[Rfam]
RNA: RtT RNA
Organism: Providencia stuartii
RNA sequence: AUAGCGCACAUAGAGUGCGGGUGAGAAGCUGCGUUCAGGUUCGAGCCGAGCGGAGCGAGAUAGCGUUGCGCUUGCGCAACGACCCGUGUGCACGAAUGAUGUUUUUAAUCCAACCCUAAUCCUUC
Numbered sequence: 001a002u003a004g005c006g007c008a009c010a011u012a013g014a015g016u017g018c019g020g021g022u023g024a025g026a027a028g029c030u031g032c033g034u035u036c037a038g039g040u041u042c043g044a045g046c047c048g049a050g051c052g053g054a055g056c057g058a059g060a061u062a063g064c065g066u067u068g069c070g071c072u073u074g075c076g077c078a079a080c081g082a083c084c085c086g087u088g089u090g091c092a093c094g095a096a097u098g099a100u101g102u103u104u105u106u107a108a109u110c111c112a113a114c115c116c117u118a119a120u121c122c123u124u125c
Stems, first nucleotide, its partner, number of pairs: 015120002019116003022112001032094002035092001040088001042086002047057002064081006